The family of this 172-nucleotide RNA sequence from Desulfitobacterium metallireducens is "Group II catalytic intron D1-D4-3". It scores 138 bits against the family's covariance model. The literature on the family includes a 2003 paper in Crit Rev Biochem Mol Biol by Lehmann and Schmidt, "Group II introns: structure and catalytic versatility of large natural ribozymes". Group II introns are found in rRNA, tRNA and mRNA of organelles in fungi, plants and protists, and also in mRNA in bacteria.

RNA sequence: UCCAUCGUGAGGUGGAAUCUGAAGGAAGCCGGCGGCAAAGCUCCGACCCGAGGAACACGAACAGUAUCAGGCGCAAAACGUGGGGUAAGGCUGCCAUUCAAGCUGAAGCCCAAAAGCUACACGGAUACGUUAGCGUAAAUGCUGCGGGUACAUGGAACGAAAGUGAAUCGUC
Numbered sequence: 001u002c003c004a005u006c007g008u009g010a011g012g013u014g015g016a017a018u019c020u021g022a023a024g025g026a027a028g029c030c031g032g033c034g035g036c037a038a039a040g041c042u043c044c045g046a047c048c049c050g051a052g053g054a055a056c057a058c059g060a061a062c063a064g065u066a067u068c069a070g071g072c073g074c075a076a077a078a079c080g081u082g083g084g085g086u087a088a089g090g091c092u093g094c095c096a097u098u099c100a101a102g103c104u105g106a107a108g109c110c111c112a113a114a115a116g117c118u119a120c121a122c123g124g125a126u127a128c129g130u131u132a133g134c135g136u137a138a139a140u141g142c143u144g145c146g147g148g149u150a151c152a153u154g155g156a157a158c159g160a161a162a163g164u165g166a167a168u169c170g171u172c
Base pairs, nucleotide, nucleotide: 001016002015003014004013005012006011028172030170031169032168035164036163040158042156043155044154045153046149047148048147049146050145062144063143064142065141066140071136072135073134077131078130079129080128081127082126083111084110085109086108089104090103091102092101